[Rfam]
RNA sequence: CUGAGAUCACAACUCCUAGCCCCUGUGCCUACGUCGCUUGGCGAUAUGGCGCCCGGGCCGUGGCGAAGUCAGCCACCAGGGUGCGCGAUAGAAAUGUCCGCAUCUCCCGUAUUUGGAAAGGUGUUAUGGUGCCCCAACU
Numbered sequence: 001c002u003g004a005g006a007u008c009a010c011a012a013c014u015c016c017u018a019g020c021c022c023c024u025g026u027g028c029c030u031a032c033g034u035c036g037c038u039u040g041g042c043g044a045u046a047u048g049g050c051g052c053c054c055g056g057g058c059c060g061u062g063g064c065g066a067a068g069u070c071a072g073c074c075a076c077c078a079g080g081g082u083g084c085g086c087g088a089u090a091g092a093a094a095u096g097u098c099c100g101c102a103u104c105u106c107c108c109g110u111a112u113u114u115g116g117a118a119a120g121g122u123g124u125u126a127u128g129g130u131g132c133c134c135c136a137a138c139u
Stems, first nucleotide, its partner, number of pairs: 003133001006130001011125003015121002019058004025052005033045004060076005079105006087098004106116002

Molybdenum/Tungsten riboswitch aptamer (Moco RNA motif): a 139-nucleotide sequence from Serratia rubidaea. NCBI's taxonomy places the organism under Bacteria, Pseudomonadati, Enterobacterales, Yersiniaceae, Serratia. The base pairs follow the family's consensus structure, which is taken from published work.